[Rfam]
RNA sequence: AGAAGUAUGUAGUAAUAACUUAUGAGAUGCUUUGGUGUUCCCUCAGAGAAUCUGAGGCUUGAGCUAAAGAAUACCAUCCUAUAAGACGCUACUUCU
Number, nucleotide and partner (000 for none) at each position: 001a096002g095003a094004a093005g092006u091007a000008u000009g089010u088011a000012g000013u000014a000015a000016u000017a000018a000019c000020u000021u000022a000023u081024g080025a000026g078027a077028u076029g075030c069031u068032u067033u066034g065035g064036u063037g000038u000039u000040c000041c057042c056043u055044c054045a053046g052047a000048g000049a000050a000051u000052c046053u045054g044055a043056g042057g041058c000059u000060u000061g000062a000063g036064c035065u034066a033067a032068a031069g030070a000071a000072u000073a000074c000075c029076a028077u027078c026079c000080u024081a023082u000083a000084a000085g000086a000087c000088g010089c009090u000091a006092c005093u004094u003095c002096u001

Overview: Shown here is a 96-nucleotide RNA sequence, a member of the family "DUF3800-V RNA". The family's RNA type in Rfam is small RNA. It is one of the family's seed sequences. The base pairs follow the family's consensus structure, which is taken from published work.